[Rfam]
RNA sequence: GGACAUAAACGCGCAUGUAAUAAACGGAUCGGACCCGGGGGCGGUACCCGGCGGCUCCACCAAACAUCCCUCGUUGGGGGCGAAUGGGGCCGAAACAGGAUCGACGAACGUCUAAAGAUGUUAGCUUUGUCCCGGUGAGCGACCACCGUUAUCGGUGCAAAUUGUACAGUUGCCAACGACAACCGUGCUCCGGCAAUGGCUCUGGCUGCGUAA
Numbered sequence: 001g002g003a004c005a006u007a008a009a010c011g012c013g014c015a016u017g018u019a020a021u022a023a024a025c026g027g028a029u030c031g032g033a034c035c036c037g038g039g040g041g042c043g044g045u046a047c048c049c050g051g052c053g054g055c056u057c058c059a060c061c062a063a064a065c066a067u068c069c070c071u072c073g074u075u076g077g078g079g080g081c082g083a084a085u086g087g088g089g090c091c092g093a094a095a096c097a098g099g100a101u102c103g104a105c106g107a108a109c110g111u112c113u114a115a116a117g118a119u120g121u122u123a124g125c126u127u128u129g130u131c132c133c134g135g136u137g138a139g140c141g142a143c144c145a146c147c148g149u150u151a152u153c154g155g156u157g158c159a160a161a162u163u164g165u166a167c168a169g170u171u172g173c174c175a176a177c178g179a180c181a182a183c184c185g186u187g188c189u190c191c192g193g194c195a196a197u198g199g200c201u202c203u204g205g206c207u208g209c210g211u212a213a
Stems, first nucleotide, its partner, number of pairs: 001132005013121004025110002029107003035051005052092007133148004
The record is a 213-nucleotide RNA from Pseudothioclava arenosa, which matches "permuted transfer-messenger RNA" in Rfam. Lineage of the source: Bacteria > Pseudomonadati > Alphaproteobacteria > Rhodobacterales > Pseudothioclava.